ALIL pseudoknot: a 132-nucleotide RNA sequence from Propionibacterium australiense. A search with the family's covariance model found it, with a score of 71 bits. Rfam classes the family as a cis-regulatory element. The base pairs follow the family's consensus structure, which is taken from published work.
RNA sequence: UGCGUAUUUCGCCCUGGCGGAACUCGACCGCCGCUAGAGGUCAUCGACUCGUUCAUCGAUGACGACAAGGCGGACCAUGGAGUCGAGCCGAUCUGCCAGGUCCUGACCCAGUCAGGAAUCAAGGUCGCUCCU
Numbered sequence: 001u002g003c004g005u006a007u008u009u010c011g012c013c014c015u016g017g018c019g020g021a022a023c024u025c026g027a028c029c030g031c032c033g034c035u036a037g038a039g040g041u042c043a044u045c046g047a048c049u050c051g052u053u054c055a056u057c058g059a060u061g062a063c064g065a066c067a068a069g070g071c072g073g074a075c076c077a078u079g080g081a082g083u084c085g086a087g088c089c090g091a092u093c094u095g096c097c098a099g100g101u102c103c104u105g106a107c108c109c110a111g112u113c114a115g116g117a118a119u120c121a122a123g124g125u126c127g128c129u130c131c132u
Stems, first nucleotide, its partner, number of pairs: 016032005079131004089127002092124003